Description
The record is a 116-nucleotide RNA sequence from Carnobacterium iners, which matches "23S methyl RNA motif" in Rfam. It is annotated as a cis-regulatory element. The literature on the family includes a 2007 paper in Nucleic Acids Res by Weinberg et al., "Identification of 22 candidate structured RNAs in bacteria using the CMfinder comparative genomics pipeline". The organism belongs to Carnobacterium, within Bacteria. A search with the family's covariance model found it, with a score of 68 bits.
RNA sequence: UAUUCAUUCGUUUUUAUCAGGAAUCCAUCAGAUUUUGAUAAAAGUUAGUGAAACUUAAUAAUGCACCAUUAACGUAUCAUUUCGCAGUGCUGGACACCGAAAUGAUACGUUUUUUU
Numbered sequence: 001u002a003u004u005c006a007u008u009c010g011u012u013u014u015u016a017u018c019a020g021g022a023a024u025c026c027a028u029c030a031g032a033u034u035u036u037g038a039u040a041a042a043a044g045u046u047a048g049u050g051a052a053a054c055u056u057a058a059u060a061a062u063g064c065a066c067c068a069u070u071a072a073c074g075u076a077u078c079a080u081u082u083c084g085c086a087g088u089g090c091u092g093g094a095c096a097c098c099g100a101a102a103u104g105a106u107a108c109g110u111u112u113u114u115u116u
Stems, first nucleotide, its partner, number of pairs: 003052006010045013071111014087097003